[Rfam]
The family of this 62-nucleotide sequence from Prolemur simus is "U7 small nuclear RNA". The source organism's lineage runs through Eukaryota, Vertebrata, Euteleostomi, Sarcopterygii and Prolemur. The family's consensus secondary structure was predicted with PFOLD. A search with the family's covariance model found it, with a score of 57 bits. Rfam's curators write: Animal histone pre-mRNAs are spliced by a different mechanism than nuclear pre-mRNAs and self-splicing introns. This processing involves the U7 snRNP, which contains only one RNA species: U7. For this family Rfam cites "U7 snRNAs: a computational survey" (Marz et al., Genomics Proteomics Bioinformatics, 2007).
RNA sequence: AUGUAUUACAGUUCUUUUAGAAUUUGUCUAGCAGGUUUUCCGGUCCUUACCGGAACUCCACC
Numbered sequence: 001a002u003g004u005a006u007u008a009c010a011g012u013u014c015u016u017u018u019a020g021a022a023u024u025u026g027u028c029u030a031g032c033a034g035g036u037u038u039u040c041c042g043g044u045c046c047u048u049a050c051c052g053g054a055a056c057u058c059c060a061c062c
Base pairs, nucleotide, nucleotide: 034059035058038055039054040053041052042051043050044049